Shown here is a 78-nucleotide sequence from Myripristis murdjan, a member of the family "mir-103/107 microRNA precursor family". Gene Ontology terms of the family: RISC complex and miRNA-mediated post-transcriptional gene silencing. The organism belongs to Myripristis, within Eukaryota.
RNA sequence: GUGUGCAGCGAGCUUCUUUACAGUGUUGUCUUGCUGAAUGGAGAUCAAGCAGCAUUGUACAGGGCUAUCACUGAACAC
Numbered sequence: 001g002u003g004u005g006c007a008g009c010g011a012g013c014u015u016c017u018u019u020a021c022a023g024u025g026u027u028g029u030c031u032u033g034c035u036g037a038a039u040g041g042a043g044a045u046c047a048a049g050c051a052g053c054a055u056u057g058u059a060c061a062g063g064g065c066u067a068u069c070a071c072u073g074a075a076c077a078c
Base pairs, nucleotide, nucleotide: 014064015063016062017061019059020058021057022056023055024054025053026052027051028050030049031048032047033046